DUF805b RNA: a 36-nucleotide RNA sequence from Pedobacter heparinus.
The match comes from Rfam's covariance-model search (36 bits).
Rfam classes the family as a cis-regulatory element.
The family's consensus secondary structure is taken from published work.
NCBI's taxonomy places the organism under Bacteria, Pseudomonadati, Sphingobacteriaceae, Pedobacter, Pedobacter heparinus.
RNA sequence: UAGGGGGAUGCCGAAAACCCUUUAUCCGAGUAGGCC
Dot-bracket structure: .((((....[[[.....))))...........]]].
Numbered sequence: 001u002a003g004g005g006g007g008a009u010g011c012c013g014a015a016a017a018c019c020c021u022u023u024a025u026c027c028g029a030g031u032a033g034g035c036c
Stems, first nucleotide, its partner, number of pairs: 002021004010035003